[Rfam]
RNA sequence: UUGAGAAUAGGCGAUGGAUUCCGCCGCGGAUACCGAUGGUAUCCGAAACCACCCCCCGGGGUUGAUGACUCCUGACACGAG
Numbered sequence: 001u002u003g004a005g006a007a008u009a010g011g012c013g014a015u016g017g018a019u020u021c022c023g024c025c026g027c028g029g030a031u032a033c034c035g036a037u038g039g040u041a042u043c044c045g046a047a048a049c050c051a052c053c054c055c056c057c058g059g060g061g062u063u064g065a066u067g068a069c070u071c072c073u074g075a076c077a078c079g080a081g
Stems, first nucleotide, its partner, number of pairs: 010025004016072003020068002051062004
Fluoride riboswitch aptamer (crcB RNA motif): an 81-nucleotide RNA sequence from Sulfobacillus harzensis. Pairs were carried over by alignment from the consensus structure, which is taken from published work. Its family is annotated with response to fluoride and positive regulation of gene expression in the Gene Ontology. Lineage of the source: Bacteria > Bacillati > Bacillota > Eubacteriales > Sulfobacillus.